MIR6217 microRNA precursor family: a 230-nucleotide sequence from Sorghum bicolor. The organism belongs to Sorghum, within Eukaryota. It scores 166 bits against the family's covariance model.

[Rfam]
RNA sequence: UAGCUACAAAAUAACUUAUUCUGUAGCCACUUUGAGUUACGAUAAUUACUAUAUUAAUUUAUGAGAUUAUAGUAAUUCCAUACUAAGUGGUUUAAUAUAAUGUCAUGGUAAAUGUCUCCAUGUGUUAUAGUAACCCAAUUAUUGUAAAUAUGUAUUGAUAUUAUCAUAAAUUAGUAUAUAAAAUUAUCGUAAAUGGAGGUGGCUACAAAAUAACUUUUAUUUUGUAGUUC
Numbered sequence: 001u002a003g004c005u006a007c008a009a010a011a012u013a014a015c016u017u018a019u020u021c022u023g024u025a026g027c028c029a030c031u032u033u034g035a036g037u038u039a040c041g042a043u044a045a046u047u048a049c050u051a052u053a054u055u056a057a058u059u060u061a062u063g064a065g066a067u068u069a070u071a072g073u074a075a076u077u078c079c080a081u082a083c084u085a086a087g088u089g090g091u092u093u094a095a096u097a098u099a100a101u102g103u104c105a106u107g108g109u110a111a112a113u114g115u116c117u118c119c120a121u122g123u124g125u126u127a128u129a130g131u132a133a134c135c136c137a138a139u140u141a142u143u144g145u146a147a148a149u150a151u152g153u154a155u156u157g158a159u160a161u162u163a164u165c166a167u168a169a170a171u172u173a174g175u176a177u178a179u180a181a182a183a184u185u186a187u188c189g190u191a192a193a194u195g196g197a198g199g200u201g202g203c204u205a206c207a208a209a210a211u212a213a214c215u216u217u218u219a220u221u222u223u224g225u226a227g228u229u230c
Base pairs, nucleotide, nucleotide: 002229003228004227005226006225007224008223009222010221011220012219013218014217016213017212018211019210020209022207023206024205025204026203027202028201029200030199031198032197033196037192038191039190040189041188042187043186044185045184046183047182050178051177052176053175054174055173056172057171058170059169060168061167062166065165066164067163069161070160071159074155081146082145083144087142088141089140090139091138092137093132094131096129097128098127099126100125101124102123103122107117108116